[Rfam]
RNA sequence: UAACCAUCCAGAGCGGCCGAGAGACCUGGCUCGUCGACGCCGCAGCAACCCGUGGGGAUUCCCCGGCCGGGUGCUACCGCCAGGACCGAUGGAGA
Number, nucleotide and partner (000 for none) at each position: 001u095002a000003a000004c092005c091006a090007u089008c088009c000010a000011g000012a000013g043014c042015g041016g040017c039018c000019g000020a000021g032022a031023g030024a000025c000026c083027u082028g081029g080030c023031u022032c021033g000034u000035c000036g000037a000038c000039g017040c016041c015042g014043c013044a075045g074046c073047a072048a000049c071050c070051c065052g064053u000054g062055g000056g000057g000058a000059u000060u000061c000062c054063c000064c052065g051066g000067c000068c000069g000070g050071g049072u047073g046074c045075u044076a000077c000078c000079g087080c029081c028082a027083g026084g000085a000086c000087c079088g008089a007090u006091g005092g004093a000094g000095a001